[Rfam]
RNA sequence: ACGUGCAGCCGGGGUGUUAGCGGUACCCUGUACCUACAAUCCGCUAUAGUAGGGGUGAUGCUGUGCCGAGGGCGUAUUCUUGUGAGGCUGCCUCUGGAAAGUGGCGUUGAUACUUCGGGUCUCGCGCAACUGGACUCCGUGAACCGUGUCAGGUCGGGAACGAAGCAGCACUAAGCGGAACCUCCCGUGUGCCGCGAGGGUGCCUGGGUUGAGUUAACUGCCAGAGUAACGCUUGGGAGAUGCGUUCGACGCACAGCGCACAA
Numbered sequence: 001a002c003g004u005g006c007a008g009c010c011g012g013g014g015u016g017u018u019a020g021c022g023g024u025a026c027c028c029u030g031u032a033c034c035u036a037c038a039a040u041c042c043g044c045u046a047u048a049g050u051a052g053g054g055g056u057g058a059u060g061c062u063g064u065g066c067c068g069a070g071g072g073c074g075u076a077u078u079c080u081u082g083u084g085a086g087g088c089u090g091c092c093u094c095u096g097g098a099a100a101g102u103g104g105c106g107u108u109g110a111u112a113c114u115u116c117g118g119g120u121c122u123c124g125c126g127c128a129a130c131u132g133g134a135c136u137c138c139g140u141g142a143a144c145c146g147u148g149u150c151a152g153g154u155c156g157g158g159a160a161c162g163a164a165g166c167a168g169c170a171c172u173a174a175g176c177g178g179a180a181c182c183u184c185c186c187g188u189g190u191g192c193c194g195c196g197a198g199g200g201u202g203c204c205u206g207g208g209u210u211g212a213g214u215u216a217a218c219u220g221c222c223a224g225a226g227u228a229a230c231g232c233u234u235g236g237g238a239g240a241u242g243c244g245u246u247c248g249a250c251g252c253a254c255a256g257c258g259c260a261c262a263a
Base pairs, nucleotide, nucleotide: 003261004260005259006258008056009055010054011029012028013027014026015025016024017023018022033053034052035051036050037049061256062255063254064253065252066251070247071246072245073244074243078240079239080238081237083235084234085233086232089228090227093225094224095223096222097221101218102217103215104214105213112210114208115207116206117205118204119203120202121198122197123196124195125194126193127189128188130187132185133184134183136179137178138177139176140175146171147170148169149168154163155162156161
The record is a 263-nucleotide RNA sequence from Drancourtella sp. An57, which matches "Bacterial large signal recognition particle RNA" in Rfam. Its family is annotated with SRP-dependent cotranslational protein targeting to membrane, signal sequence recognition and signal recognition particle, plasma membrane targeting in the Gene Ontology. The organism belongs to Drancourtella, within Bacteria. The literature on the family includes a 2003 paper in Nucleic Acids Res by Rosenblad et al., "SRPDB: Signal Recognition Particle Database".